[Rfam]
RNA sequence: UAUUAAAAAUUUAUUCAUUUUUACUGUUAAAAGUUGGUAUUUGAAUGACGAAAUAGCUAAAUAGUUACACAUAAUGUGCUACAUGUAUCUUAUGCUAAUAUACAUGGACCAAUUUUUAACAGUAAAAAAUGAAUAUAAUUGUUAUUA
Number, nucleotide and partner (000 for none) at each position: 001u000002a146003u000004u144005a143006a142007a000008a140009a139010u138011u137012u135013a134014u133015u132016c000017a130018u129019u128020u126021u125022u124023a123024c122025u121026g000027u119028u118029a117030a116031a115032a114033g113034u112035u000036g000037g000038u000039a000040u000041u000042u000043g000044a000045a000046u000047g000048a000049c000050g000051a000052a000053a000054u000055a000056g000057c000058u000059a000060a000061a000062u000063a000064g000065u000066u000067a000068c000069a000070c000071a000072u000073a000074a000075u000076g000077u000078g000079c000080u000081a000082c000083a000084u000085g000086u000087a000088u000089c000090u000091u000092a000093u000094g000095c000096u000097a000098a000099u000100a000101u000102a000103c000104a000105u000106g000107g000108a000109c000110c000111a000112a034113u033114u032115u031116u030117u029118a028119a027120c000121a025122g024123u023124a022125a021126a020127a000128a019129a018130u017131g000132a015133a014134u013135a012136u000137a011138a010139u009140u008141g000142u006143u005144a004145u000146u002147a000

The family of this 147-nucleotide RNA sequence from Gossypium australe is "MIR7502 microRNA precursor family".